Record summary
The record is a 76-nucleotide sequence from Megalops atlanticus, which matches "Small nucleolar RNA SNORD59" in Rfam. Its Rfam clan is "SNORD59 clan". A reference for the family is Galardi et al. (2002), "Purified box C/D snoRNPs are able to reproduce site-specific 2'-O-methylation of target RNA in vitro", Mol Cell Biol. The organism belongs to Megalops, within Eukaryota. The base pairs follow the family's consensus structure, which was predicted with ILM. Rfam links the family to the GO terms RNA processing and nucleolus.
[Rfam]
RNA sequence: CUUUCUGUGAUGAUUGAGACAGAGACUUUCGUUCUUCUGACUAAAAGCUGAAGCCAGUCUUACUGUCCUGAGAAAG
Dot-bracket structure: (((.(..................................................................).)))
Numbered sequence: 001c002u003u004u005c006u007g008u009g010a011u012g013a014u015u016g017a018g019a020c021a022g023a024g025a026c027u028u029u030c031g032u033u034c035u036u037c038u039g040a041c042u043a044a045a046a047g048c049u050g051a052a053g054c055c056a057g058u059c060u061u062a063c064u065g066u067c068c069u070g071a072g073a074a075a076g
Stems, first nucleotide, its partner, number of pairs: 001076003005072001